Shown here is a 115-nucleotide sequence from Actinoplanes octamycinicus, a member of the family "SAM (S-adenosyl methionine) riboswitch aptamer". The organism belongs to Actinoplanes, within Bacteria. Pairs were carried over by alignment from the consensus structure, which is taken from published work. Rfam 15.1 lists 2,360 matches to the family in 1,305 species. SAM-IV is a mRNA element that regulates gene expression via direct sensing of S-adenosylmethionine (SAM or AdoMet).
RNA sequence: GGUCAUGAGUGUCAGCGACAAGCCCCGGCUCGCUGACCGGCAACCCUUCCGUCCGCGAUGGGGUGCCCCGGGUGAGGACCGGGCCGGCGUCGACCGACGACGGCAAGCGCGGACC
Numbered sequence: 001g002g003u004c005a006u007g008a009g010u011g012u013c014a015g016c017g018a019c020a021a022g023c024c025c026c027g028g029c030u031c032g033c034u035g036a037c038c039g040g041c042a043a044c045c046c047u048u049c050c051g052u053c054c055g056c057g058a059u060g061g062g063g064u065g066c067c068c069c070g071g072g073u074g075a076g077g078a079c080c081g082g083g084c085c086g087g088c089g090u091c092g093a094c095c096g097a098c099g100a101c102g103g104c105a106a107g108c109g110c111g112g113a114c115c
Stems, first nucleotide, its partner, number of pairs: 001080004009038001011037006021030002039067003044063003048058002083104004088099004